[Rfam]
RNA sequence: UCUUUAAGCUAGGGGAGUUGGUAAAACCAGCUGAGAGUAAGAAUGUUGAUUCUUUGACCCUUGACCUGACCUGGAUAAUGCCAGCGUAGGGAAGCAAUGUUUUUAUUAC
Numbered sequence: 001u002c003u004u005u006a007a008g009c010u011a012g013g014g015g016a017g018u019u020g021g022u023a024a025a026a027c028c029a030g031c032u033g034a035g036a037g038u039a040a041g042a043a044u045g046u047u048g049a050u051u052c053u054u055u056g057a058c059c060c061u062u063g064a065c066c067u068g069a070c071c072u073g074g075a076u077a078a079u080g081c082c083a084g085c086g087u088a089g090g091g092a093a094g095c096a097a098u099g100u101u102u103u104u105a106u107u108a109c
Stems, first nucleotide, its partner, number of pairs: 008095003011061004016055001017031005039054006065090004071084004
TPP riboswitch aptamer (THI element): a 109-nucleotide RNA sequence from Crassaminicella thermophila.
Rfam links the family to the GO term thiamine pyrophosphate binding.
The source organism's lineage runs through Bacteria, Bacillati, Clostridia, Clostridiaceae and Crassaminicella.